[Rfam]
Shown here is a 386-nucleotide RNA from Tolypocladium paradoxum, a member of the family "Group I catalytic intron". Lineage of the source: Eukaryota > Hypocreomycetidae > Hypocreales > Ophiocordycipitaceae > Tolypocladium. The family's consensus secondary structure is taken from published work.
RNA sequence: CACCAGGGGUAAACCGCAGUUGCUCUGCCCCUAAAAGCAGCCGGGAAACCGGUCCCGUGGGUCCUUGGCCAGGCGGCCGAAGAAUGCUAGUCGCCCCCGACGAGGGGCGGCGACACCCUCAAAUUGCGGGAAGUCCCUAAAGCCAACUGAGACCAAGCAGGCGCCCGAAAGGGCCCUGUGGCCGAGCUAGCAGCCCUGGGUAUGGUAAAACGGCAGUUGGAUGGAACAAUGGGUGAUCCGCAGCCAAGCCCCUAACCGGCAGCGCUUGCUGCCGCACGGGGAAGGUUCAGAGACUUGACGGGGGUGGGUUCAGUCAGUUCCUGUAGCCCUACGUAGUGAACUAUACUGUGCUUAAGAUAAAGUCCGUCUAUAUGCUAAAGCGUAAU
Dot-bracket structure: ....(((((((.(..........).)))))))...(((...............................................))).........................(((((.(....((((((....(((.............................................................................................)))...))))))((....(((..........................)))....))...[.[[[[[...).))))).((.((((..............................)))).))........]]]]]].....(((((....)))))..